The family of this 80-nucleotide RNA from Angustibacter sp. Root456 is "Glycine riboswitch aptamer".
RNA sequence: CUCUGGAAAGCAGGACGACGUCCUGCACCCACGGUGCAAGCCGCGCUCGCGCGGUGAAGCUCUCAGGUCCCAUGACAGAG
Numbered sequence: 001c002u003c004u005g006g007a008a009a010g011c012a013g014g015a016c017g018a019c020g021u022c023c024u025g026c027a028c029c030c031a032c033g034g035u036g037c038a039a040g041c042c043g044c045g046c047u048c049g050c051g052c053g054g055u056g057a058a059g060c061u062c063u064c065a066g067g068u069c070c071c072a073u074g075a076c077a078g079a080g
Base pairs, nucleotide, nucleotide: 001080002079003078004077005076011025012024013023014022027068028067029066031063034062036060040055041054042053043052
A search with the family's covariance model found it, with a score of 40 bits. The organism belongs to Angustibacter, within Bacteria.